Rfam assigns this 75-nucleotide RNA from Portunus trituberculatus to the family "HDV ribozyme from F. prausnitzii".
The base pairs follow the family's consensus structure, which is taken from published work.
Gene Ontology term of the family: catalytic activity.
On this family, see Webb et al., Science 2009: "Widespread occurrence of self-cleaving ribozymes".
[Rfam]
RNA sequence: CCUGCUCAAAAGCCUACUUCCACCUCCCCGUGGUGAGCAGGGGGCAACAGGUAUUUACAUCUGGCUAACGGAAGA
Numbered sequence: 001c002c003u004g005c006u007c008a009a010a011a012g013c014c015u016a017c018u019u020c021c022a023c024c025u026c027c028c029c030g031u032g033g034u035g036a037g038c039a040g041g042g043g044g045c046a047a048c049a050g051g052u053a054u055u056u057a058c059a060u061c062u063g064g065c066u067a068a069c070g071g072a073a074g075a
Stems, first nucleotide, its partner, number of pairs: 001041007022034003048063005